RNA sequence: UGCGCAACGCGUGUUUGAGAACCACAUUGCCGAAGCUGACGCCUUUGAGGCGGGCGGUGCGGAUGUAUUGCGCGGUCAUGACCUCGGCCAUGGAGGCGCGGGUCAUGCGGGCGAUAUAGCCCAUACCGUAAAGUGCAAUGGUGAUCACCGGCAGCGUAAAGUUGCGUAGGUUUGCGUCA
Numbered sequence: 001u002g003c004g005c006a007a008c009g010c011g012u013g014u015u016u017g018a019g020a021a022c023c024a025c026a027u028u029g030c031c032g033a034a035g036c037u038g039a040c041g042c043c044u045u046u047g048a049g050g051c052g053g054g055c056g057g058u059g060c061g062g063a064u065g066u067a068u069u070g071c072g073c074g075g076u077c078a079u080g081a082c083c084u085c086g087g088c089c090a091u092g093g094a095g096g097c098g099c100g101g102g103u104c105a106u107g108c109g110g111g112c113g114a115u116a117u118a119g120c121c122c123a124u125a126c127c128g129u130a131a132a133g134u135g136c137a138a139u140g141g142u143g144a145u146c147a148c149c150g151g152c153a154g155c156g157u158a159a160a161g162u163u164g165c166g167u168a169g170g171u172u173u174g175c176g177u178c179a
Base pairs, nucleotide, nucleotide: 005140006139009136010135011134012133014131015130016128017127019126021124028123029122040111042109046105047104048103051100052099054097055075057073058072059071060070061069062068082096083095084094085093145179147177149174150173151172154165155164156163
Source information: Rfam assigns this 179-nucleotide RNA sequence from Shimia sp. SK013 to the family "Ruegeria cis52 sRNA". A reference for the family is Rivers et al. (2016), "Experimental Identification of Small Non-Coding RNAs in the Model Marine Bacterium Ruegeria pomeroyi DSS-3", Front Microbiol. The family's consensus secondary structure was predicted with RNAfold.